mir-133 microRNA precursor family: a 72-nucleotide RNA sequence from Leptobrachium leishanense. The source organism's lineage runs through Eukaryota, Deuterostomia, Gnathostomata, Sarcopterygii and Leptobrachium. The family has 127 seed sequences and 3,763 matches in Rfam 15.1. mir-133 was first experimentally characterised in mouse and homologues have since been discovered in several other species. A search with the family's covariance model found it, with a score of 61 bits. Pairs were carried over by alignment from the consensus structure, which was predicted with PFOLD.
RNA sequence: UGGCUGCAGCUGGUGAAAAGGAACCACAUCAGCCCUGCACAUGAUUUGGUCCCCUUCAACCAGCCGCAACUG
Number, nucleotide and partner (000 for none) at each position: 001u000002g000003g070004c000005u068006g067007c000008a000009g064010c063011u062012g061013g060014u059015g000016a000017a056018a055019a000020g052021g051022a050023a000024c049025c048026a047027c000028a045029u044030c043031a000032g000033c000034c000035c000036u000037g000038c000039a000040c000041a000042u000043g030044a029045u028046u000047u026048g025049g024050u022051c021052c020053c000054c000055u018056u017057c000058a000059a014060c013061c012062a011063g010064c009065c000066g000067c006068a005069a000070c003071u000072g000